This 98-nucleotide sequence from Lactobacillus sp. LL6 belongs to the Rfam family "Purine riboswitch aptamer".
The match comes from Rfam's covariance-model search (69 bits).
The base pairs follow the family's consensus structure, which is taken from published work.
The source organism's lineage runs through Bacteria, Bacillati, Bacillota, Bacilli and Lactobacillus.
Rfam describes the family as follows. Riboswitches are metabolite binding domains within certain messenger RNAs that serve as precision sensors for their corresponding targets.
RNA sequence: AAAACCAACAAAAAUAAAUUCUGUAUAACGUCGAAAUAAGGUCGGCAGUUUCUACCUAGAACCAUAAAUUCUAGACUACAGGUAAAUUAAGACUUUUA
Numbered sequence: 001a002a003a004a005c006c007a008a009c010a011a012a013a014a015u016a017a018a019u020u021c022u023g024u025a026u027a028a029c030g031u032c033g034a035a036a037u038a039a040g041g042u043c044g045g046c047a048g049u050u051u052c053u054a055c056c057u058a059g060a061a062c063c064a065u066a067a068a069u070u071c072u073a074g075a076c077u078a079c080a081g082g083u084a085a086a087u088u089a090a091g092a093c094u095u096u097u098a
Stems, first nucleotide, its partner, number of pairs: 020082006030046005056074006